[Rfam]
RNA sequence: UAACAUGUUUAGGAUAAAUCUUUAUCUAGUUGUUAAUUAUUCAAAAUCACUCAUUAUCGCAAUCCUAAUUACACCAUGAGCUUCUUGUUCAAUGCUUCGACGGACUAAAAUUACUAAAAAAAGGUUGAGAAUAUUAU
Dot-bracket structure: ....(((((..(..(...(...(.(.(((((.............................................................................)))))..).))...)..)..)).)))...
Numbered sequence: 001u002a003a004c005a006u007g008u009u010u011a012g013g014a015u016a017a018a019u020c021u022u023u024a025u026c027u028a029g030u031u032g033u034u035a036a037u038u039a040u041u042c043a044a045a046a047u048c049a050c051u052c053a054u055u056a057u058c059g060c061a062a063u064c065c066u067a068a069u070u071a072c073a074c075c076a077u078g079a080g081c082u083u084c085u086u087g088u089u090c091a092a093u094g095c096u097u098c099g100a101c102g103g104a105c106u107a108a109a110a111u112u113a114c115u116a117a118a119a120a121a122a123g124g125u126u127g128a129g130a131a132u133a134u135u136a137u
Stems, first nucleotide, its partner, number of pairs: 005134003008130002012126001015123001019119001023118001025116001027113005

MIR480 microRNA precursor family: a 137-nucleotide RNA from Populus trichocarpa. For this family Rfam cites "Novel and mechanical stress-responsive MicroRNAs in Populus trichocarpa that are absent from Arabidopsis" (Lu et al., Plant Cell, 2005). NCBI's taxonomy places the organism under Eukaryota, Streptophytina, Euphyllophyta, rosids, Populus. The match comes from Rfam's covariance-model search (44 bits). The base pairs follow the family's consensus structure, which was predicted with WAR.